[Rfam]
DUF3800-IX RNA: a 70-nucleotide RNA sequence. Actinobacteria, Firmicutes (1 example), Nitrospirae, Proteobacteria, Verrucomicrobia (1 example). The family's consensus secondary structure is taken from published work.
RNA sequence: CCCCUGCGAUCCGAACUGUCGCCGUAUGGUUGGCGUUCCUGGUUCCGCCAGGAUAGGACGCGGGUGCGCA
Numbered sequence: 001c002c003c004c005u006g007c008g009a010u011c012c013g014a015a016c017u018g019u020c021g022c023c024g025u026a027u028g029g030u031u032g033g034c035g036u037u038c039c040u041g042g043u044u045c046c047g048c049c050a051g052g053a054u055a056g057g058a059c060g061c062g063g064g065u066g067c068g069c070a
Stems, first nucleotide, its partner, number of pairs: 001066001003064006010058003017035005023029001037053005